[Rfam]
RNA sequence: GCCUGGUAGUUCCUAGAAACAGCUGGACUGUGCUGAUCUAUAGGUUUUUGAUUGACCGGCAAAUAUGAACUCUGUGAUUUUAUGCAUGGGAGUUGCCACUCCAAGUCGCCUUCAUUGCCCAGUUGCAGAGACAUUA
Numbered sequence: 001g002c003c004u005g006g007u008a009g010u011u012c013c014u015a016g017a018a019a020c021a022g023c024u025g026g027a028c029u030g031u032g033c034u035g036a037u038c039u040a041u042a043g044g045u046u047u048u049u050g051a052u053u054g055a056c057c058g059g060c061a062a063a064u065a066u067g068a069a070c071u072c073u074g075u076g077a078u079u080u081u082a083u084g085c086a087u088g089g090g091a092g093u094u095g096c097c098a099c100u101c102c103a104a105g106u107c108g109c110c111u112u113c114a115u116u117g118c119c120c121a122g123u124u125g126c127a128g129a130g131a132c133a134u135u136a
Stems, first nucleotide, its partner, number of pairs: 001060003012044004017039001020035004072128001074126006084118002086115004091111002094108002097105001
RNA: Small nucleolar RNA SNORA84
Organism: Coregonus sp. 'balchen'